[Rfam]
This 372-nucleotide sequence from Cnuella takakiae belongs to the Rfam family "transfer-messenger RNA".
RNA sequence: GGGGGUGUUUGGCUUUGACAGCAUAGAUCUUUGAGCGUGUAAGCAUGUCGAGCGUUGGAUAAUUAGCUCGUAAAUCUGAAUACCCAAACUCUAAAUGGCGAAUCUAACUUUGCCAUGGCUGCCUAAUCAGUGAUUAAGUAGUCAUUAGGGCCGCCGCACAGGUUUGCCUUUUACCAAGUGCCGCCGCCGACUCAAAACAAAUAAAGGUUGCUGCAAGGGAAGGCUGUGACCCUUGCUUAAGACCAUCCAGCUAAGUAUUGCAUUGGUUUGUUCCGUUCCUGUGCAGUGCCGACAAACAAUUCGGAAAUAAACAUGUAGAAAGCGUUUGAAUAUCAUGUUUGGACAGCGGUUCGACUCCGCUCACCUCCACUU
Numbered sequence: 001g002g003g004g005g006u007g008u009u010u011g012g013c014u015u016u017g018a019c020a021g022c023a024u025a026g027a028u029c030u031u032u033g034a035g036c037g038u039g040u041a042a043g044c045a046u047g048u049c050g051a052g053c054g055u056u057g058g059a060u061a062a063u064u065a066g067c068u069c070g071u072a073a074a075u076c077u078g079a080a081u082a083c084c085c086a087a088a089c090u091c092u093a094a095a096u097g098g099c100g101a102a103u104c105u106a107a108c109u110u111u112g113c114c115a116u117g118g119c120u121g122c123c124u125a126a127u128c129a130g131u132g133a134u135u136a137a138g139u140a141g142u143c144a145u146u147a148g149g150g151c152c153g154c155c156g157c158a159c160a161g162g163u164u165u166g167c168c169u170u171u172u173a174c175c176a177a178g179u180g181c182c183g184c185c186g187c188c189g190a191c192u193c194a195a196a197a198c199a200a201a202u203a204a205a206g207g208u209u210g211c212u213g214c215a216a217g218g219g220a221a222g223g224c225u226g227u228g229a230c231c232c233u234u235g236c237u238u239a240a241g242a243c244c245a246u247c248c249a250g251c252u253a254a255g256u257a258u259u260g261c262a263u264u265g266g267u268u269u270g271u272u273c274c275g276u277u278c279c280u281g282u283g284c285a286g287u288g289c290c291g292a293c294a295a296a297c298a299a300u301u302c303g304g305a306a307a308u309a310a311a312c313a314u315g316u317a318g319a320a321a322g323c324g325u326u327u328g329a330a331u332a333u334c335a336u337g338u339u340u341g342g343a344c345a346g347c348g349g350u351u352c353g354a355c356u357c358c359g360c361u362c363a364c365c366u367c368c369a370c371u372u
Stems, first nucleotide, its partner, number of pairs: 001368007019341003026334003031329006039323002044315005049070005057085002060082002115145008149191001151189001153187002156181004162175001164173001166208006213236007222252005255289009265279002271306003275302001345361005
Taxonomically the source falls in Cnuella (Bacteria, Pseudomonadati, Chitinophagia, Chitinophagaceae).
It is annotated as a non-coding RNA gene.